[Rfam]
RNA sequence: CCAUAAUGCAUCUAGGGUUCCGGCCGCGCCUGCGGCGUCUGGUCCGAGAGAUGCGCUCCCAUCCCGUUGGGGUGGAGCCACGGCGGGAUAAAAGCCCGGGAGAU
Numbered sequence: 001c002c003a004u005a006a007u008g009c010a011u012c013u014a015g016g017g018u019u020c021c022g023g024c025c026g027c028g029c030c031u032g033c034g035g036c037g038u039c040u041g042g043u044c045c046g047a048g049a050g051a052u053g054c055g056c057u058c059c060c061a062u063c064c065c066g067u068u069g070g071g072g073u074g075g076a077g078c079c080a081c082g083g084c085g086g087g088a089u090a091a092a093a094g095c096c097c098g099g100g101a102g103a104u
Base pairs, nucleotide, nucleotide: 007055008054009053010052011051012050015045016044020042021041022039023036024035025034026033027032056077057076058075059074062071063070079099081102085097086096087095